[Rfam]
RNA sequence: GACCUCCCUCUGUGGGGUGAUCGAUCACGGGGGCCCCCAGAUCGAUUGCCCUGCAGAGGGAGGCC
Numbered sequence: 001g002a003c004c005u006c007c008c009u010c011u012g013u014g015g016g017g018u019g020a021u022c023g024a025u026c027a028c029g030g031g032g033g034c035c036c037c038c039a040g041a042u043c044g045a046u047u048g049c050c051c052u053g054c055a056g057a058g059g060g061a062g063g064c065c
Stems, first nucleotide, its partner, number of pairs: 001065001003063024029037003
A member of the RNA family "mir-9242 microRNA precursor family" from Cnephaeus nilssonii, 65 nucleotides long. It scores 67 bits against the family's covariance model. The organism belongs to Cnephaeus, within Eukaryota. The family's consensus secondary structure was predicted with RNAalifold.